[Rfam]
RNA: L2-Alphaproteobacteria ribosomal protein leader
Organism: Roseovarius tolerans
RNA sequence: GGGCACCUUCGGGGGCCUAUAACCACGGUGGGAUUGAAACCCAUCUUACAUAGCGGGCCUUCGGGCACGCGUUUGCUAAACGGAAGACAGAAA
Numbered sequence: 001g002g003g004c005a006c007c008u009u010c011g012g013g014g015g016c017c018u019a020u021a022a023c024c025a026c027g028g029u030g031g032g033a034u035u036g037a038a039a040c041c042c043a044u045c046u047u048a049c050a051u052a053g054c055g056g057g058c059c060u061u062c063g064g065g066c067a068c069g070c071g072u073u074u075g076c077u078a079a080a081c082g083g084a085a086g087a088c089a090g091a092a093a
Stems, first nucleotide, its partner, number of pairs: 001018004006014003028070003032066001040065002